[Rfam]
RNA sequence: GCUGUACAUGAUGACAACUGGCUCCCUCUACUGAAUUGGUGUGAGGAAACUGCCUGUCACCCUAUCUGACUACAGU
Numbered sequence: 001g002c003u004g005u006a007c008a009u010g011a012u013g014a015c016a017a018c019u020g021g022c023u024c025c026c027u028c029u030a031c032u033g034a035a036u037u038g039g040u041g042u043g044a045g046g047a048a049a050c051u052g053c054c055u056g057u058c059a060c061c062c063u064a065u066c067u068g069a070c071u072a073c074a075g076u
Base pairs, nucleotide, nucleotide: 001076002075003074004073005072006071